[Rfam]
RNA sequence: GAAGUCCACCAGACCGCCGCUGGUGCUGGCGCCGAAAGGCCGCACUGGAGGAACGUCCGGACUGCAUAGGGCAGCGUAGCAGCUAACGGCUGUCCACCGCGAGGUGAGGAUCAGAGCAACAGAGACGAGCCGCUUGAGUGCGGGUGAAACGGGCAAUCUCUACGCGCAGCAAUACCAAGUAGGCACACGUUGACGGGGCCCCCGGAGUGUGCGGGUAGGUAGCAUCGAGCUGGUUGGGCGACCACCAGCCAAGAGUAAUGGCGGUCACGCCGCCGAUUCUCGCAAGGGAAUCGGCGGUGCACAGAAUCCGGCUUAUCGGUGGGCUUCACAC
Numbered sequence: 001g002a003a004g005u006c007c008a009c010c011a012g013a014c015c016g017c018c019g020c021u022g023g024u025g026c027u028g029g030c031g032c033c034g035a036a037a038g039g040c041c042g043c044a045c046u047g048g049a050g051g052a053a054c055g056u057c058c059g060g061a062c063u064g065c066a067u068a069g070g071g072c073a074g075c076g077u078a079g080c081a082g083c084u085a086a087c088g089g090c091u092g093u094c095c096a097c098c099g100c101g102a103g104g105u106g107a108g109g110a111u112c113a114g115a116g117c118a119a120c121a122g123a124g125a126c127g128a129g130c131c132g133c134u135u136g137a138g139u140g141c142g143g144g145u146g147a148a149a150c151g152g153g154c155a156a157u158c159u160c161u162a163c164g165c166g167c168a169g170c171a172a173u174a175c176c177a178a179g180u181a182g183g184c185a186c187a188c189g190u191u192g193a194c195g196g197g198g199c200c201c202c203c204g205g206a207g208u209g210u211g212c213g214g215g216u217a218g219g220u221a222g223c224a225u226c227g228a229g230c231u232g233g234u235u236g237g238g239c240g241a242c243c244a245c246c247a248g249c250c251a252a253g254a255g256u257a258a259u260g261g262c263g264g265u266c267a268c269g270c271c272g273c274c275g276a277u278u279c280u281c282g283c284a285a286g287g288g289a290a291u292c293g294g295c296g297g298u299g300c301a302c303a304g305a306a307u308c309c310g311g312c313u314u315a316u317c318g319g320u321g322g323g324c325u326u327c328a329c330a331c
Stems, first nucleotide, its partner, number of pairs: 001327010011316001012266007020048007028040001053314001055312001057311005062169004069201004074165005079093005094108001095106004109160002114158002116154002130143002132139002173221004183212006194204003229249005235244003
Bacterial RNase P class A: a 331-nucleotide RNA sequence from Comamonas antarctica. Taxonomically the source falls in Comamonas (Bacteria, Pseudomonadati, Pseudomonadota, Burkholderiales). The base pairs follow the family's consensus structure, which is taken from published work. Ribonuclease P (RNase P) is a ubiquitous endoribonuclease, found in archaea, bacteria and eukarya as well as chloroplasts and mitochondria.